Shown here is a 30-nucleotide RNA, a member of the family "L19-Flavobacteria ribosomal protein leader".
It is one of the family's seed sequences.
Pairs were carried over by alignment from the consensus structure, which is taken from published work.
By type it is a cis-regulatory leader.
The literature on the family includes a 2020 paper in BMC Microbiol by Eckert and Weinberg, "Discovery of 20 novel ribosomal leader candidates in bacteria and archaea".

RNA sequence: UAACCUCUGACGAAAAAAUCGUGUAUGUUG
Numbered sequence: 001u002a003a004c005c006u007c008u009g010a011c012g013a014a015a016a017a018a019u020c021g022u023g024u025a026u027g028u029u030g
Base pairs, nucleotide, nucleotide: 001030002029003028004027008025010022011021012020013019